[Rfam]
RNA sequence: CGCCGCCUGAGGGGAAGGUACUCCUAGUACGAGAGGAACAGGGUAUCGGGGCCUCUAGUCUACCGGUUGUCCGAUAGGGCAGUGCCGGGCAGCCACGCCCUGUGGGGUAACCGCUGAAAGCAUCUAAGCGGGAACCCCUCCCCGAAAAGAGGCGGCGGUGCAUGUUGGCCGCAAGGCUAACAUGUGGGAACCCUCCCCAAGAACAGGGGGUUGAUGGGGUGGGGGUGUAAGCCUCGAGGGCGAAAGUCCGAGGGGUUCAGCCUGCCACUCCCAAUAGGGUGAG
Numbered sequence: 001c002g003c004c005g006c007c008u009g010a011g012g013g014g015a016a017g018g019u020a021c022u023c024c025u026a027g028u029a030c031g032a033g034a035g036g037a038a039c040a041g042g043g044u045a046u047c048g049g050g051g052c053c054u055c056u057a058g059u060c061u062a063c064c065g066g067u068u069g070u071c072c073g074a075u076a077g078g079g080c081a082g083u084g085c086c087g088g089g090c091a092g093c094c095a096c097g098c099c100c101u102g103u104g105g106g107g108u109a110a111c112c113g114c115u116g117a118a119a120g121c122a123u124c125u126a127a128g129c130g131g132g133a134a135c136c137c138c139u140c141c142c143c144g145a146a147a148a149g150a151g152g153c154g155g156c157g158g159u160g161c162a163u164g165u166u167g168g169c170c171g172c173a174a175g176g177c178u179a180a181c182a183u184g185u186g187g188g189a190a191c192c193c194u195c196c197c198c199a200a201g202a203a204c205a206g207g208g209g210g211u212u213g214a215u216g217g218g219g220u221g222g223g224g225g226u227g228u229a230a231g232c233c234u235c236g237a238g239g240g241c242g243a244a245a246g247u248c249c250g251a252g253g254g255g256u257u258c259a260g261c262c263u264g265c266c267a268c269u270c271c272c273a274a275u276a277g278g279g280u281g282a283g
Stems, first nucleotide, its partner, number of pairs: 001157008011143004017047007048101005056095001058093001063088005068081005104138003111131005190280004194210005215273003218269005223263003231256005238249003
Notes: A member of the RNA family "Archaeal large subunit ribosomal RNA" from Metallosphaera cuprina, 283 nucleotides of a longer RNA. Clan: LSU clan. The sequence is in the family's curated seed alignment. NCBI's taxonomy places the organism under Archaea, Thermoproteati, Sulfolobales, Metallosphaera, Metallosphaera cuprina.